[Rfam]
RNA sequence: GCCCCUGUAGCUCAGUGGAUAGAGCACUGGCCUCCGGAGCCAGGUGCGAUGGUUCGAUUCCAUCCAGGGGUA
Numbered sequence: 001g002c003c004c005c006u007g008u009a010g011c012u013c014a015g016u017g018g019a020u021a022g023a024g025c026a027c028u029g030g031c032c033u034c035c036g037g038a039g040c041c042a043g044g045u046g047c048g049a050u051g052g053u054u055c056g057a058u059u060c061c062a063u064c065c066a067g068g069g070g071u072a
Base pairs, nucleotide, nucleotide: 001071002070003069004068005067006066007065010025011024012023013022027043028042029041030040031039048064049063050062051061052060
Dot-bracket structure: (((((((..((((........)))).(((((.......)))))....(((((.......)))))))))))).